mir-156 microRNA precursor family: an 85-nucleotide RNA sequence from Lupinus albus. Pairs were carried over by alignment from the consensus structure, which was predicted with PFOLD. On this family, see Reinhart et al., Genes Dev 2002: "MicroRNAs in plants". Its family is annotated with miRNA-mediated post-transcriptional gene silencing and RISC complex in the Gene Ontology. The family has 10 seed sequences and 1,401 matches in Rfam 15.1. The source organism's lineage runs through Eukaryota, Magnoliopsida, Mesangiospermae, Genisteae and Lupinus.
RNA sequence: UUGACAGAAGAGAGUGAGCACAUACUUUUGGUGAUUGUAUGAAUACAUACAUUUGCGGGUGCGUGCUCACUUUUCUUUCUGUCAU
Dot-bracket structure: .((((((((((((((((((((.(((.................................))).))))))))).))).)))))))).